[Rfam]
RNA sequence: UUGCAUCUAUUGACAGACCUGAAGCAGAUUACUGUGGUUUUCCAGGUUUUUUAACAGUUCGAUGCAAGAUUAAUUUCCUCGCGCUUUCUGUUUGAUCUCAUAGCAAUUCAGAUUGAAUAGAGGAAUACAUAU
Numbered sequence: 001u002u003g004c005a006u007c008u009a010u011u012g013a014c015a016g017a018c019c020u021g022a023a024g025c026a027g028a029u030u031a032c033u034g035u036g037g038u039u040u041u042c043c044a045g046g047u048u049u050u051u052u053a054a055c056a057g058u059u060c061g062a063u064g065c066a067a068g069a070u071u072a073a074u075u076u077c078c079u080c081g082c083g084c085u086u087u088c089u090g091u092u093u094g095a096u097c098u099c100a101u102a103g104c105a106a107u108u109c110a111g112a113u114u115g116a117a118u119a120g121a122g123g124a125a126u127a128c129a130u131a132u
Base pairs, nucleotide, nucleotide: 002066003065004064005063006062007061011056012055015049016048017047018046019045022040023039024038025037027035076124077123078122079121080120084115087112088111089110090109092106093105094104096102

A member of the RNA family "Small nucleolar RNA SNORA31" from Chiloscyllium punctatum, 132 nucleotides long. Rfam 15.1 lists 2,094 matches to the family in 626 species. NCBI's taxonomy places the organism under Eukaryota, Chondrichthyes, Elasmobranchii, Hemiscylliidae, Chiloscyllium. Rfam's curators write: ACA31 (SNORA31) belongs to the H/ACA class of snoRNAs which are thought to guide the sites of modification of uridines to pseudouridines. ACA31 is predicted to guide the pseudouridylation of U3713 in 28S rRNA and U218 in 18S rRNA. This family includes the mouse homologue snoMBI-161. It scores 69 bits against the family's covariance model. Its family is annotated with nucleolus and RNA processing in the Gene Ontology. The literature on the family includes a 2001 paper in EMBO J by Huttenhofer et al., "RNomics: an experimental approach that identifies 201 candidates for novel, small, non-messenger RNAs in mouse".